[Rfam]
RNA sequence: AAGGAGCAAUAAACCCUUCUUGAUAGAACAAGAGGGCAUUAUUGCUCCUUUAUUUUCU
Numbered sequence: 001a002a003g004g005a006g007c008a009a010u011a012a013a014c015c016c017u018u019c020u021u022g023a024u025a026g027a028a029c030a031a032g033a034g035g036g037c038a039u040u041a042u043u044g045c046u047c048c049u050u051u052a053u054u055u056u057c058u
Stems, first nucleotide, its partner, number of pairs: 001050012014036003018033005

Plastid-psbA-2 3UTR RNA: a 58-nucleotide RNA from Fraxinus pennsylvanica. NCBI's taxonomy places the organism under Eukaryota, Magnoliopsida, lamiids, Lamiales, Fraxinus. Clan: Plastid-psbA 3UTR RNA clan. About the family: Plastid psbA-2 is a non-coding RNA (ncRNA) present in plastids. It was identified in inverted repeat sequences in the 3 prime untranslate region (3UTR) of photosystem II quinone-binding protein (psbA). For this family Rfam cites "Retrograde signaling in plants: A critical review focusing on the GUN pathway and beyond" (Richter et al., Plant Commun, 2023). The sequence is in the family's curated seed alignment.